[Rfam]
RNA sequence: GAUGCAGGGAUUGUGUGUAUCGGCUCAUUGCGAUCAAUUACGCUUUGCACGAAAGAUUUCCCUGCAGAAAACAAUUUGGGGCAGAUGGGCAGUUGUGAUUCAAUGUUAAUUGAAUAGCUCAACAAUCAUCUUCCCCACAAUU
Numbered sequence: 001g002a003u004g005c006a007g008g009g010a011u012u013g014u015g016u017g018u019a020u021c022g023g024c025u026c027a028u029u030g031c032g033a034u035c036a037a038u039u040a041c042g043c044u045u046u047g048c049a050c051g052a053a054a055g056a057u058u059u060c061c062c063u064g065c066a067g068a069a070a071a072c073a074a075u076u077u078g079g080g081g082c083a084g085a086u087g088g089g090c091a092g093u094u095g096u097g098a099u100u101c102a103a104u105g106u107u108a109a110u111u112g113a114a115u116a117g118c119u120c121a122a123c124a125a126u127c128a129u130c131u132u133c134c135c136c137a138c139a140a141u142u
Stems, first nucleotide, its partner, number of pairs: 004065007015043005078136004083131006092123004
The record is a 142-nucleotide sequence from Microthlaspi erraticum, which matches "small nucleolar RNA snoR135" in Rfam. By type it is an H/ACA-box small nucleolar RNA. The family's consensus secondary structure was predicted with RNAalifold. Gene Ontology terms of the family: RNA processing and nucleolus. A search with the family's covariance model found it, with a score of 129 bits.